[Rfam]
Shown here is a 90-nucleotide RNA from Rubrivivax sp. A210, a member of the family "Burkholderia RNA 7 (anti-hemB)". A search with the family's covariance model found it, with a score of 57 bits. For this family Rfam cites "Identification of 22 candidate structured RNAs in bacteria using the CMfinder comparative genomics pipeline" (Weinberg et al., Nucleic Acids Res, 2007).
RNA sequence: UCCCCUGCUUUUCCUCCCUGAGCAGGUGCCUUAGCGUGAUGACAGCGAUAAGGCUUACCCGCCCCGGCCUGUGCCGGGGCGCUUUUUUGU
Number, nucleotide and partner (000 for none) at each position: 001u000002c000003c000004c026005c025006u024007g023008c022009u021010u000011u000012u000013c000014c000015u000016c000017c000018c000019u000020g000021a009022g008023c007024a006025g005026g004027u000028g054029c053030c052031u051032u050033a049034g000035c000036g000037u000038g000039a000040u000041g000042a000043c000044a000045g000046c000047g000048a000049u033050a032051a031052g030053g029054c028055u000056u000057a000058c000059c000060c000061g080062c079063c078064c077065c076066g075067g074068c073069c000070u000071g000072u000073g068074c067075c066076g065077g064078g063079g062080c061081g000082c000083u000084u000085u000086u000087u000088u000089g000090u000